[Rfam]
RNA sequence: GGAAAGUUGAAGGGUUCAAUUCCUAGUACGAGAGGACCGGAAUUGACGCACCUCUGGUGUUCCAGUUGUUCUGUCAAGAGCAUCGCUGGGCAGCUAUGUGCGGAAGAGAUAAGCGCUGAAAGCAUCUAAGCGCCAAGCUCCUCCUGAGAUAAACUUUCCCUGAAGGAUCGUGGAAGACUACCACGUCGAUAGGCCUCCGGUGCAAGCACAGUAAUGUGUUCAGCUGAGGGGUACUAAUCAUCCGUUUG
Numbered sequence: 001g002g003a004a005a006g007u008u009g010a011a012g013g014g015u016u017c018a019a020u021u022c023c024u025a026g027u028a029c030g031a032g033a034g035g036a037c038c039g040g041a042a043u044u045g046a047c048g049c050a051c052c053u054c055u056g057g058u059g060u061u062c063c064a065g066u067u068g069u070u071c072u073g074u075c076a077a078g079a080g081c082a083u084c085g086c087u088g089g090g091c092a093g094c095u096a097u098g099u100g101c102g103g104a105a106g107a108g109a110u111a112a113g114c115g116c117u118g119a120a121a122g123c124a125u126c127u128a129a130g131c132g133c134c135a136a137g138c139u140c141c142u143c144c145u146g147a148g149a150u151a152a153a154c155u156u157u158c159c160c161u162g163a164a165g166g167a168u169c170g171u172g173g174a175a176g177a178c179u180a181c182c183a184c185g186u187c188g189a190u191a192g193g194c195c196u197c198c199g200g201u202g203c204a205a206g207c208a209c210a211g212u213a214a215u216g217u218g219u220u221c222a223g224c225u226g227a228g229g230g231g232u233a234c235u236a237a238u239c240a241u242c243c244g245u246u247u248g
Base pairs, nucleotide, nucleotide: 001159002158003157004156005155006154007153008152011145012144013143014142017045018044019043020042021041022040023039047102048101049100050099051098055096056095057094062089063088064087065086066085067082068081069080070079071078072077106140107139108138113133114132115131116130117129162245165243166242167241168240169185170184171183172182173181190236191235192234193232194231195230196229197228198226199225200224206219207218208217209216210215
Source information: Shown here is a 248-nucleotide part of an RNA from Prosthecobacter gellanilyticus, a member of the family "Bacterial large subunit ribosomal RNA". A reference for the family is Yusupov et al. (2001), "Crystal structure of the ribosome at 5.5 A resolution", Science. The source organism's lineage runs through Bacteria, Verrucomicrobiia, Verrucomicrobiales, Verrucomicrobiaceae and Prosthecobacter. Gene Ontology terms of the family: ribosome and structural constituent of ribosome. Rfam 15.1 lists 51,934 matches to the family in 10,816 species.